[Rfam]
RNA sequence: GCACCGUCACAACGGCUUCCUGGCGUGACGGACAGACACUCAAUGGAGCA
Numbered sequence: 001g002c003a004c005c006g007u008c009a010c011a012a013c014g015g016c017u018u019c020c021u022g023g024c025g026u027g028a029c030g031g032a033c034a035g036a037c038a039c040u041c042a043a044u045g046g047a048g049c050a
Stems, first nucleotide, its partner, number of pairs: 004031007013022002015049003019046002
RNA: SAM/SAH riboswitch aptamer
Organism: Marinibacterium profundimaris